Record summary
MIR7486 microRNA precursor family: an 87-nucleotide RNA sequence from Gossypium mustelinum. Rfam 15.1 lists 10,132 matches to the family in 36 species.
RNA sequence: CUUAGGGGAGCGUUUUGUCCACGUCAGCACAAAGUGCGCCCUCAAGGAAGCGCUUUGUGCUGACAUGGACAAAACACUCCCCUAGAG
Numbered sequence: 001c002u003u004a005g006g007g008g009a010g011c012g013u014u015u016u017g018u019c020c021a022c023g024u025c026a027g028c029a030c031a032a033a034g035u036g037c038g039c040c041c042u043c044a045a046g047g048a049a050g051c052g053c054u055u056u057g058u059g060c061u062g063a064c065a066u067g068g069a070c071a072a073a074a075c076a077c078u079c080c081c082c083u084a085g086a087g
Stems, first nucleotide, its partner, number of pairs: 002085009012075010023064015040047002
Gene Ontology terms of the family: miRNA-mediated post-transcriptional gene silencing and RISC complex.